[Rfam]
RNA sequence: CAAGUUCAUUUGCUCCGAGCUUUAUCAUCUAAGGCAAAGCUAUGAUGAUGGAGCCGAUAGGGUUUGUCUGGAAACCGGCAGGCCUCCCGUGUGGAAAGGAGUAGCGCAUUUUACCUG
Numbered sequence: 001c002a003a004g005u006u007c008a009u010u011u012g013c014u015c016c017g018a019g020c021u022u023u024a025u026c027a028u029c030u031a032a033g034g035c036a037a038a039g040c041u042a043u044g045a046u047g048a049u050g051g052a053g054c055c056g057a058u059a060g061g062g063u064u065u066g067u068c069u070g071g072a073a074a075c076c077g078g079c080a081g082g083c084c085u086c087c088c089g090u091g092u093g094g095a096a097a098g099g100a101g102u103a104g105c106g107c108a109u110u111u112u113a114c115c116u117g
Stems, first nucleotide, its partner, number of pairs: 003111002006108001011103006019054011033041003060085009070075001086094002
The family of this 117-nucleotide RNA from Desulforamulus ruminis is "Molybdenum/Tungsten riboswitch aptamer (Moco RNA motif)". The base pairs follow the family's consensus structure, which is taken from published work. A search with the family's covariance model found it, with a score of 78 bits.